mir-96 microRNA precursor family: a 78-nucleotide RNA sequence from Ornithorhynchus anatinus. A reference for the family is Houbaviy et al. (2003), "Embryonic stem cell-specific MicroRNAs", Dev Cell. NCBI's taxonomy places the organism under Eukaryota, Opisthokonta, Eumetazoa, Bilateria, Ornithorhynchus. It is one of the family's seed sequences. The base pairs follow the family's consensus structure, which was predicted with RNAalifold.

[Rfam]
RNA sequence: UGGCCUCUUUUGGCACUAGCACAUUUUUGCUUUUGUCUCUCUGCUCUGAGCAAUCAUGUGUAGUGCCAAUAUGGGAAA
Numbered sequence: 001u002g003g004c005c006u007c008u009u010u011u012g013g014c015a016c017u018a019g020c021a022c023a024u025u026u027u028u029g030c031u032u033u034u035g036u037c038u039c040u041c042u043g044c045u046c047u048g049a050g051c052a053a054u055c056a057u058g059u060g061u062a063g064u065g066c067c068a069a070u071a072u073g074g075g076a077a078a
Base pairs, nucleotide, nucleotide: 004075005074006073008071010069011068012067013066014065015064016063017062019061020060021059022058023057024056027053028052029051030050031049032048